This 78-nucleotide RNA sequence from Papaver somniferum belongs to the Rfam family "small nucleolar RNA snoR117".
[Rfam]
RNA sequence: AGCCAAUGAUGUUAGAUAUUGUCCGUACCAUCUGAGAGAUCUACUCAUUGAUGAGUCUUUAACAAUUUUCUGAGGCUG
Numbered sequence: 001a002g003c004c005a006a007u008g009a010u011g012u013u014a015g016a017u018a019u020u021g022u023c024c025g026u027a028c029c030a031u032c033u034g035a036g037a038g039a040u041c042u043a044c045u046c047a048u049u050g051a052u053g054a055g056u057c058u059u060u061a062a063c064a065a066u067u068u069u070c071u072g073a074g075g076c077u078g
Base pairs, nucleotide, nucleotide: 001077002076003075004074
By type it is a C/D-box small nucleolar RNA.
The family has 6 seed sequences and 419 matches in Rfam 15.1.
Rfam links the family to the GO terms RNA processing and nucleolus.